[Rfam]
RNA sequence: UAUAUGAAAUGAAAAAACACAAUUCGGUUGGUAGUCCGGAUGCAUCAUAAUAAAUGAAUGUCAGUAGCCUUCCCCUCCUCGGGAUGUCCAUCAUUUCGUAGUAUUUU
Numbered sequence: 001u002a003u004a005u006g007a008a009a010u011g012a013a014a015a016a017a018c019a020c021a022a023u024u025c026g027g028u029u030g031g032u033a034g035u036c037c038g039g040a041u042g043c044a045u046c047a048u049a050a051u052a053a054a055u056g057a058a059u060g061u062c063a064g065u066a067g068c069c070u071u072c073c074c075c076u077c078c079u080c081g082g083g084a085u086g087u088c089c090a091u092c093a094u095u096u097c098g099u100a101g102u103a104u105u106u107u
Base pairs, nucleotide, nucleotide: 004099005098006097007096008095009094010093011092022041023040024039025038026037027036042061043060044059045058071084072083073082074081
The record is a 107-nucleotide sequence from Priestia filamentosa, which matches "azaaromatic riboswitch aptamer (yjdF RNA)" in Rfam.